[Rfam]
RNA sequence: UCGACGUGGACAUCCAGGACUUGCUUUCCUGGCUCUGUCCUGGUGGCGUAUGGGAGCGCAGCUCUUGAGCUAAGACGUACAGUCCCGUUCCACAAUGUCGGAGACAAAGCUCUGUCCCCGGCUUCGGCUGGUGAGGACGAGCGUCCUGCAUAUUCCUACAUCUUCCCAGAGUCCCUCUGGGGCCGUUACUGGGGGGCUAAACCAUGCAGUGCACAAAC
Numbered sequence: 001u002c003g004a005c006g007u008g009g010a011c012a013u014c015c016a017g018g019a020c021u022u023g024c025u026u027u028c029c030u031g032g033c034u035c036u037g038u039c040c041u042g043g044u045g046g047c048g049u050a051u052g053g054g055a056g057c058g059c060a061g062c063u064c065u066u067g068a069g070c071u072a073a074g075a076c077g078u079a080c081a082g083u084c085c086c087g088u089u090c091c092a093c094a095a096u097g098u099c100g101g102a103g104a105c106a107a108a109g110c111u112c113u114g115u116c117c118c119c120g121g122c123u124u125c126g127g128c129u130g131g132u133g134a135g136g137a138c139g140a141g142c143g144u145c146c147u148g149c150a151u152a153u154u155c156c157u158a159c160a161u162c163u164u165c166c167c168a169g170a171g172u173c174c175c176u177c178u179g180g181g182g183c184c185g186u187u188a189c190u191g192g193g194g195g196g197c198u199a200a201a202c203c204a205u206g207c208a209g210u211g212c213a214c215a216a217a218c
Stems, first nucleotide, its partner, number of pairs: 001101007008040005014032003018027002043093004052086004056080001058078002146209006162196006171183002174180002
RNA: Small nucleolar RNA SNORA73 family